[Rfam]
RNA: Plant small nucleolar RNA U3
Organism: Tripterygium wilfordii
RNA sequence: ACGACCUUACUUGAACAGGAUCUGUUCUAUAGGAUCGUACAUCUGUGUCCUUUUUUAGGAGACAGGAACUAAAGUCUGGUUGAUGAAAUCUGACCGUGUGAUCGGAGCGUGAUUAACAGCAGCAUGGCCUCUGGCCGUUGAUGCAGUAGAUGAUCGUUCUUGGCCAUCCAAUGGCUGAGAUGGUCACACGGUUGUCUGACAGACU
Numbered sequence: 001a002c003g004a005c006c007u008u009a010c011u012u013g014a015a016c017a018g019g020a021u022c023u024g025u026u027c028u029a030u031a032g033g034a035u036c037g038u039a040c041a042u043c044u045g046u047g048u049c050c051u052u053u054u055u056u057a058g059g060a061g062a063c064a065g066g067a068a069c070u071a072a073a074g075u076c077u078g079g080u081u082g083a084u085g086a087a088a089u090c091u092g093a094c095c096g097u098g099u100g101a102u103c104g105g106a107g108c109g110u111g112a113u114u115a116a117c118a119g120c121a122g123c124a125u126g127g128c129c130u131c132u133g134g135c136c137g138u139u140g141a142u143g144c145a146g147u148a149g150a151u152g153a154u155c156g157u158u159c160u161u162g163g164c165c166a167u168c169c170a171a172u173g174g175c176u177g178a179g180a181u182g183g184u185c186a187c188a189c190g191g192u193u194g195u196c197u198g199a200c201a202g203a204c205u
Base pairs, nucleotide, nucleotide: 001038002037003035005033006032007031013027014026015025016024017023018022043065044064045063046062048060049059050058051057074204075203076202077201078200093192094191095190096189097188098187099186100185101184102183103182104181106158107157108156109155116147117146119144120143121142123140124138125137126136127135128134129133160178161177162176163175164174165173166172167171